[Rfam]
RNA sequence: CCCACACCCAUGUGUGUAGGACCCCAAAGGAUCACCAUUAAAUUUCGCACAAAUCUGCAGAAAAGUUAUCACAUAAGUGUGGGACUUAACUUUUCUAGAUAUCUGUGCUAAAUUUAAUGUUGAUCCUUUGGAGUCCUACACACAUGGGUGUGGG
Numbered sequence: 001c002c003c004a005c006a007c008c009c010a011u012g013u014g015u016g017u018a019g020g021a022c023c024c025c026a027a028a029g030g031a032u033c034a035c036c037a038u039u040a041a042a043u044u045u046c047g048c049a050c051a052a053a054u055c056u057g058c059a060g061a062a063a064a065g066u067u068a069u070c071a072c073a074u075a076a077g078u079g080u081g082g083g084a085c086u087u088a089a090c091u092u093u094u095c096u097a098g099a100u101a102u103c104u105g106u107g108c109u110a111a112a113u114u115u116a117a118u119g120u121u122g123a124u125c126c127u128u129u130g131g132a133g134u135c136c137u138a139c140a141c142a143c144a145u146g147g148g149u150g151u152g153g154g
Stems, first nucleotide, its partner, number of pairs: 002153012015140008024131005030125003034121001036119010047108005053102002056099001059096010069082005
Notes
The family of this 154-nucleotide sequence from Amborella trichopoda is "MIR8565 microRNA precursor family". Lineage of the source: Eukaryota > Viridiplantae > Streptophytina > Euphyllophyta > Amborella.